[Rfam]
The family of this 144-nucleotide sequence from Glomus cerebriforme is "U11 spliceosomal RNA".

RNA sequence: UACAAGGGUGUGUGGUUAUUUUUAUAAUAUUUACCACAUGGACUUAAGUCCAUGCAGAAUCGUCAUCAAAAGAUUUUGCGUACAUAAUUUUUAGGUUAUGAAUGGGUGGUUAUCUGGCUUCGCUUUUAAGCUGAUACCGCCCUU
Dot-bracket structure: .......(((((((((................))))(((((((....)))))))(((((((..........))))))))))))..................(.((((((.((((..................)))))))))).)

A search with the family's covariance model found it, with a score of 69 bits.
Rfam 15.1 lists 2,595 matches to the family in 1,202 species.
The base pairs follow the family's consensus structure, which is taken from published work.